[Rfam]
RNA sequence: UGAUGUGAGGGCGAUCUGGCUGCAACAUCUGUCACCCCAUUGAUCGCCUUUGAUUGGUUGAUUCAGCUGAUCUGGCUGGCUAGGUGGGUCCCCUUCCUCACUGCUCCAUGUGUGUCCCUCCUGAAGCUGCACAGUCGGUCGAAGAGGAUGACCUACCACGAUAGAGACAGUACCAUUCAUCGGUCAAGUGUAUACAGUAGCUGCACUCCCCUGCUAGAACCUCCAAACAAGCUCAAGGUCCAUUUGUAACAGAAUGUAGGGUAGUCAAGCUUCCAAGACUGCAGACACAUCCAAGUGAGACAGUGGCAUGAGUCUGCCACUGUUU
Dot-bracket structure: .((.(((((((..(...((.......(((((((.(((((..((((((..................)).)))))))..))...))))))).)).))))))))...)).........(.(((((((..........))))(((....((........)).)))..)))...).............................(((...((.((((((......((....(((((...........)))))...))...)))))).))...)))......................(((.(.(.((.(......).)..).).)..)))